[Rfam]
Notes
A member of the RNA family "Rhodo-rpoB RNA", 95 nucleotides long. Rfam's curators put it in the seed alignment. Rfam classes the family as a cis-regulatory element.
RNA sequence: GGUUCGGGAGCCACCCUAAGGGACGGGUGGCAUGAAUAGAAUCUUACCCCCCUCUCGCCAAUCGGCACGCCUUCCGUGGCCCGACGGAACGCUGG
Numbered sequence: 001g002g003u004u005c006g007g008g009a010g011c012c013a014c015c016c017u018a019a020g021g022g023a024c025g026g027g028u029g030g031c032a033u034g035a036a037u038a039g040a041a042u043c044u045u046a047c048c049c050c051c052c053u054c055u056c057g058c059c060a061a062u063c064g065g066c067a068c069g070c071c072u073u074c075c076g077u078g079g080c081c082c083g084a085c086g087g088a089a090c091g092c093u094g095g
Stems, first nucleotide, its partner, number of pairs: 001043005010031007068094002070091001072089005
Dot-bracket structure: (((((....(((((((........))))))).......)))))........................(((.(((((........))))).).)).